[Rfam]
RNA: tRNA
Organism: Schizosaccharomyces pombe
RNA sequence: GCAUCAGUGGUGUAGCGGUAACAUCAAUGCCUUCCAAGCAUUAGCUCCGGGUUCGACUCCCGGCUGAUGCA
Numbered sequence: 001g002c003a004u005c006a007g008u009g010g011u012g013u014a015g016c017g018g019u020a021a022c023a024u025c026a027a028u029g030c031c032u033u034c035c036a037a038g039c040a041u042u043a044g045c046u047c048c049g050g051g052u053u054c055g056a057c058u059c060c061c062g063g064c065u066g067a068u069g070c071a
Base pairs, nucleotide, nucleotide: 001070002069003068004067005066006065007064010024011023012022013021026042027041028040029039030038047063048062049061050060051059